The family of this 93-nucleotide RNA from Paracoccus suum is "Glycine riboswitch aptamer".
Gene Ontology term of the family: glycine biosynthetic process.
The organism belongs to Paracoccus, within Bacteria.
Rfam's curators write: This family represents the bacterial glycine riboswitch.

RNA sequence: GCACGGAAAUCGGGAGACACCGGGCCUCAGCGCCCGGGGCCGAAGGAGCAACCGCCCCGGUAAACUCUCAGGCGAAAAGACCGUUUCCGUGAC
Numbered sequence: 001g002c003a004c005g006g007a008a009a010u011c012g013g014g015a016g017a018c019a020c021c022g023g024g025c026c027u028c029a030g031c032g033c034c035c036g037g038g039g040c041c042g043a044a045g046g047a048g049c050a051a052c053c054g055c056c057c058c059g060g061u062a063a064a065c066u067c068u069c070a071g072g073c074g075a076a077a078a079g080a081c082c083g084u085u086u087c088c089g090u091g092a093c
Stems, first nucleotide, its partner, number of pairs: 006088001008086002011083003020037004039073003042069002046067003052060002